Record summary: The record is a 70-nucleotide RNA sequence from Denticeps clupeoides, which matches "mir-24 microRNA precursor family" in Rfam. Pairs were carried over by alignment from the consensus structure, which was predicted with RNAalifold. Rfam describes the family as follows. This family represents the microRNA (miRNA) mir-24 family. miRNAs are transcribed as ~70nt precursors (modelled here) and subsequently processed by the Dicer enzyme to give a ~22nt product. In this case the mature sequence comes from the 3' arm of the precursor. The extents of the hairpin precursors are not generally known and are estimated based on hairpin prediction. The products are thought to have regulatory roles through complementarity to mRNA. The involvement of Dicer in miRNA processing suggests a relationship with the phenomenon of RNA interference. miRNAs are numbered based on the sequence of the mature RNA. miR-24 has been identified in human and mouse.

[Rfam]
Nucleotides: 070
Stems, first nucleotide, its partner, number of pairs: 003070004008065002011062003015058009026048005
Number, partner (000 for none) and nucleotide at each position: 001000a002000u003070c004069u005068c006067u007000u008065g009064u010000g011062c012061c013060u014000a015058c016057u017056g018055a019054a020053c021052u022051g023050g024000u025000a026048u027047c028046a029045g030044u031000g032000u033000a034000u035000c036000c037000a038000g039000a040000g041000a042000a043000g044030a045029c046028u047027g048026g049000c050023u051022c052021a053020g054019u055018u056017c057016a058015g059000c060013a061012g062011g063000a064009a065008c066000a067006g068005g069004a070003g